[Rfam]
RNA sequence: GGGGCUGAUUCUGGAUUCGACAGGAUUUGCGAAGCCCUAGGAGCAUGCCGAGGGGCGGUUUGCCUCGUUAAAAGCCGCAAAAAAAUAGUUGCAAACGACGAAAACUACGCACUAGCAGCUUAAUAACCUGCUCAGAGCCCUCUCUCCCUAGCCUCCGUUCUUAGGACGGGGAUCAAGAGAGGUCAAAAACAAAAGAACUCGUGUGGAUGUCCUGCCUGGGGCUGAAACACUAAACCUAAUCAGGCUAGUUGGUUAGUGGCGUGUCCGUUCGCAGCUAACCGGCGAAUGUAAAGACAGGACUAAGCAUGUAGUGCCGACGGUGUAGUAAUUCUGGACGCGGGUUCAACUCCCGCCAGCUCCACCA
Numbered sequence: 001g002g003g004g005c006u007g008a009u010u011c012u013g014g015a016u017u018c019g020a021c022a023g024g025a026u027u028u029g030c031g032a033a034g035c036c037c038u039a040g041g042a043g044c045a046u047g048c049c050g051a052g053g054g055g056c057g058g059u060u061u062g063c064c065u066c067g068u069u070a071a072a073a074g075c076c077g078c079a080a081a082a083a084a085a086u087a088g089u090u091g092c093a094a095a096c097g098a099c100g101a102a103a104a105c106u107a108c109g110c111a112c113u114a115g116c117a118g119c120u121u122a123a124u125a126a127c128c129u130g131c132u133c134a135g136a137g138c139c140c141u142c143u144c145u146c147c148c149u150a151g152c153c154u155c156c157g158u159u160c161u162u163a164g165g166a167c168g169g170g171g172a173u174c175a176a177g178a179g180a181g182g183u184c185a186a187a188a189a190c191a192a193a194a195g196a197a198c199u200c201g202u203g204u205g206g207a208u209g210u211c212c213u214g215c216c217u218g219g220g221g222c223u224g225a226a227a228c229a230c231u232a233a234a235c236c237u238a239a240u241c242a243g244g245c246u247a248g249u250u251g252g253u254u255a256g257u258g259g260c261g262u263g264u265c266c267g268u269u270c271g272c273a274g275c276u277a278a279c280c281g282g283c284g285a286a287u288g289u290a291a292a293g294a295c296a297g298g299a300c301u302a303a304g305c306a307u308g309u310a311g312u313g314c315c316g317a318c319g320g321u322g323u324a325g326u327a328a329u330u331c332u333g334g335a336c337g338c339g340g341g342u343u344c345a346a347c348u349c350c351c352g353c354c355a356g357c358u359c360c361a362c363c364a
Stems, first nucleotide, its partner, number of pairs: 001360007021333007034321003038317001040315002044308005049067005055078006112135002115131004139182006146171004152165003157198006201230004214245005248283010259272003263300004267295003337353005